[Rfam]
The record is a 45-nucleotide RNA sequence from Lasius niger, which matches "Histone 3' UTR stem-loop" in Rfam.
RNA sequence: AAAAAGGCCCUUUUCAGGGCCAUAAAAAUUUACCAAAAAGAGAAA
Numbered sequence: 001a002a003a004a005a006g007g008c009c010c011u012u013u014u015c016a017g018g019g020c021c022a023u024a025a026a027a028a029u030u031u032a033c034c035a036a037a038a039a040g041a042g043a044a045a
Stems, first nucleotide, its partner, number of pairs: 006021006
Source information: The organism belongs to Lasius, within Eukaryota. Rfam classes the family as a cis-regulatory element. The match comes from Rfam's covariance-model search (40 bits). Rfam's curators write: The mRNAs of metazoan histone genes lack a poly-A tail. 3' end processing occurs at a site between a highly conserved stem-loop (modelled by this family) and a purine rich region around 20 nts downstream (the histone downstream element, or HDE).